[Rfam]
Nucleotides: 114
Base pairs, nucleotide, nucleotide: 011100012099013098014097015096016095019053020052021051022050023049025047027046028045029044033041034040035039056081057080058079059078060077061076062075063074064073065072066071082091083090
Number, partner (000 for none) and nucleotide at each position: 001000u002000u003000u004000a005000u006000a007000u008000a009000a010000a011100u012099u013098c014097u015096u016095c017000g018000a019053g020052c021051c022050c023049g024000c025047c026000c027046g028045c029044c030000u031000a032000a033041g034040g035039c036000g037000c038000u039035g040034c041033u042000a043000u044029g045028g046027c047025g048000u049023c050022g051021g052020g053019c054000c055000g056081g057080g058079g059078u060077g061076u062075g063074u064073c065072u066071g067000g068000a069000a070000a071066c072065g073064g074063a075062u076061g077060c078059g079058c080057c081056u082091a083090c084000c085000a086000u087000u088000u089000u090083g091082u092000a093000a094000a095016g096015g097014a098013g099012a100011a101000u102000g103000u104000a105000c106000c107000a108000u109000g110000a111000a112000a113000c114000g
This 114-nucleotide RNA from Flavonifractor sp. An10 belongs to the Rfam family "Molybdenum/Tungsten riboswitch aptamer (Moco RNA motif)". A search with the family's covariance model found it, with a score of 61 bits. Lineage of the source: Bacteria > Bacillati > Clostridia > Eubacteriales > Flavonifractor.